mir-87 microRNA precursor family: a 76-nucleotide RNA from Aphidius gifuensis. For this family Rfam cites "Systematic discovery and characterization of fly microRNAs using 12 Drosophila genomes" (Stark et al., Genome Res, 2007). NCBI's taxonomy places the organism under Eukaryota, Metazoa, Hexapoda, Braconidae, Aphidius.

RNA sequence: CUCGGACGUGCCUGACUCCUUGCUCUAACCCGUGUUCUAUAAUUUUGGGUGAGCAAAGUUUCAGGUGUGUUCGCGA
Numbered sequence: 001c002u003c004g005g006a007c008g009u010g011c012c013u014g015a016c017u018c019c020u021u022g023c024u025c026u027a028a029c030c031c032g033u034g035u036u037c038u039a040u041a042a043u044u045u046u047g048g049g050u051g052a053g054c055a056a057a058g059u060u061u062c063a064g065g066u067g068u069g070u071u072c073g074c075g076a
Stems, first nucleotide, its partner, number of pairs: 003073005009067007018058001020056002023053003029049003